[Rfam]
This 88-nucleotide RNA sequence from Sphingomonas parva belongs to the Rfam family "Repression of heat shock gene expression (ROSE) element". The family's consensus secondary structure is taken from published work. Lineage of the source: Bacteria > Pseudomonadati > Alphaproteobacteria > Sphingomonadaceae > Sphingomonas. This family represents a 5' UTR cis-regulatory element found in heat shock mRNAs and is known as the ROSE (repression of heat shock gene expression) element. The match comes from Rfam's covariance-model search (48 bits). The family has 13 seed sequences and 381 matches in Rfam 15.1. Gene Ontology terms of the family: response to temperature stimulus and regulation of translation.

RNA sequence: CCGGACGCCAGAAGGGUCCGGUGCCGCGGGCGCCCCGCGCCCCGGCCUCGUAACCAACGUUGCUCAAGGAGGACUUUGGAGAUGAGGA
Numbered sequence: 001c002c003g004g005a006c007g008c009c010a011g012a013a014g015g016g017u018c019c020g021g022u023g024c025c026g027c028g029g030g031c032g033c034c035c036c037g038c039g040c041c042c043c044g045g046c047c048u049c050g051u052a053a054c055c056a057a058c059g060u061u062g063c064u065c066a067a068g069g070a071g072g073a074c075u076u077u078g079g080a081g082a083u084g085a086g087g088a
Stems, first nucleotide, its partner, number of pairs: 001021006008015002023046004028042006047086005054079004059074003063071003